[Rfam]
A member of the RNA family "Small Cajal body specific RNA 24" from Gallus gallus, 131 nucleotides long. The family's RNA type in Rfam is small Cajal body RNA. A reference for the family is Darzacq et al. (2002), "Cajal body-specific small nuclear RNAs: a novel class of 2'-O-methylation and pseudouridylation guide RNAs", EMBO J. Clan: SCARNA3 clan. Rfam 15.1 lists 689 matches to the family in 502 species. Rfam links the family to the GO terms nucleolus, Cajal body and RNA processing. scaRNAs are a specific class of small nuclear RNAs which localise to the Cajal bodies and guide the modification of RNA polymerase II transcribed spliceosomal RNAs U1, U2, U4, U5 and U12. ACA12 belongs to the H/ACA box class of guide RNAs as it has the predicted hairpin-hinge-hairpin-tail structure,the conserved H/ACA-box motifs and is found associated with GAR1.
RNA sequence: UGGACACGUAAGUUUUCUUUCAGUUUCUCCUCUAUGUGGGGAAAGCUGUACUAGUGUCCUAUAGUAACACAGAAGCUAUCUGUUCAACUCUGAUGAGUUAAUAGAGUUGGAUCGUUCCACUUCUGACAGCU
Numbered sequence: 001u002g003g004a005c006a007c008g009u010a011a012g013u014u015u016u017c018u019u020u021c022a023g024u025u026u027c028u029c030c031u032c033u034a035u036g037u038g039g040g041g042a043a044a045g046c047u048g049u050a051c052u053a054g055u056g057u058c059c060u061a062u063a064g065u066a067a068c069a070c071a072g073a074a075g076c077u078a079u080c081u082g083u084u085c086a087a088c089u090c091u092g093a094u095g096a097g098u099u100a101a102u103a104g105a106g107u108u109g110g111a112u113c114g115u116u117c118c119a120c121u122u123c124u125g126a127c128a129g130c131u
Base pairs, nucleotide, nucleotide: 002059003058004057005056006055007054009053010052022047023046024045025044026042027041028040029039030038070125071124072123073122074121075120089105090104091103092102